[Rfam]
RNA sequence: AUGCACUGUGCGGUGUGCAUAGAGCAAACUAUUCUUUCACCUUUUACUAAGGAAUACCGUGUGCGUGCGCAUUUAGUGGCAUACGCUAAUUUUGUGAAGGGAUUUCUCUCACAAGAGAAC
Numbered sequence: 001a002u003g004c005a006c007u008g009u010g011c012g013g014u015g016u017g018c019a020u021a022g023a024g025c026a027a028a029c030u031a032u033u034c035u036u037u038c039a040c041c042u043u044u045u046a047c048u049a050a051g052g053a054a055u056a057c058c059g060u061g062u063g064c065g066u067g068c069g070c071a072u073u074u075a076g077u078g079g080c081a082u083a084c085g086c087u088a089a090u091u092u093u094g095u096g097a098a099g100g101g102a103u104u105u106c107u108c109u110c111a112c113a114a115g116a117g118a119a120c
Stems, first nucleotide, its partner, number of pairs: 004078003009069003015066007030056008104119005
The record is a 120-nucleotide RNA sequence from Malus domestica, which matches "U5 spliceosomal RNA" in Rfam. The base pairs follow the family's consensus structure, which is taken from published work. About the family: U5 RNA is a component of both types of known spliceosome. NCBI's taxonomy places the organism under Eukaryota, Viridiplantae, Streptophytina, Euphyllophyta, Malus.